[Rfam]
RNA sequence: GUGGGCGGAAGCUCAUUGUAGAGGUCACAUGCAGAGUGCUCGUCACUCCAAACCAAUCACCUCGGGGAAGGUCUGAGACAAGAGCCAAUCGUUACCCUUGCAGGGUAUCACCUGAUUCGGGUGAGCGAGUGAACAGAAAAUAUGGGCCAACGUGUGUAGUUCUCGCAGGAGAAGCCAGGCGGCGCAGUUUCUCAGCGCCGCCGGUGGAUGUGACUCUCACUGGCUUGGAAUCACUCGCGGCUGGCAGAUGAGUGCGAUGUAUGAGGUGGGGCACGGCUCCACAACCCAAUUCAGACUACUCUCCCUCCAC
Numbered sequence: 001g002u003g004g005g006c007g008g009a010a011g012c013u014c015a016u017u018g019u020a021g022a023g024g025u026c027a028c029a030u031g032c033a034g035a036g037u038g039c040u041c042g043u044c045a046c047u048c049c050a051a052a053c054c055a056a057u058c059a060c061c062u063c064g065g066g067g068a069a070g071g072u073c074u075g076a077g078a079c080a081a082g083a084g085c086c087a088a089u090c091g092u093u094a095c096c097c098u099u100g101c102a103g104g105g106u107a108u109c110a111c112c113u114g115a116u117u118c119g120g121g122u123g124a125g126c127g128a129g130u131g132a133a134c135a136g137a138a139a140a141u142a143u144g145g146g147c148c149a150a151c152g153u154g155u156g157u158a159g160u161u162c163u164c165g166c167a168g169g170a171g172a173a174g175c176c177a178g179g180c181g182g183c184g185c186a187g188u189u190u191c192u193c194a195g196c197g198c199c200g201c202c203g204g205u206g207g208a209u210g211u212g213a214c215u216c217u218c219a220c221u222g223g224c225u226u227g228g229a230a231u232c233a234c235u236c237g238c239g240g241c242u243g244g245c246a247g248a249u250g251a252g253u254g255c256g257a258u259g260u261a262u263g264a265g266g267u268g269g270g271g272c273a274c275g276g277c278u279c280c281a282c283a284a285c286c287c288a289a290u291u292c293a294g295a296c297u298a299c300u301c302u303c304c305c306u307c308c309a310c
Stems, first nucleotide, its partner, number of pairs: 001310004007304003012265005021063004034048005073294005083242004093107005108124006125238007145224001266282007

Record summary
The family of this 310-nucleotide RNA from Myripristis murdjan is "Nuclear RNase P". By type it is a ribozyme. Rfam describes the family as follows. Ribonuclease P (RNase P) is a ubiquitous endoribonuclease, found in archaea, bacteria and eukarya as well as chloroplasts and mitochondria. Its best characterised activity is the generation of mature 5'-ends of tRNAs by cleaving the 5'-leader elements of precursor-tRNAs. Cellular RNase Ps are ribonucleoproteins. The base pairs follow the family's consensus structure, which is taken from published work.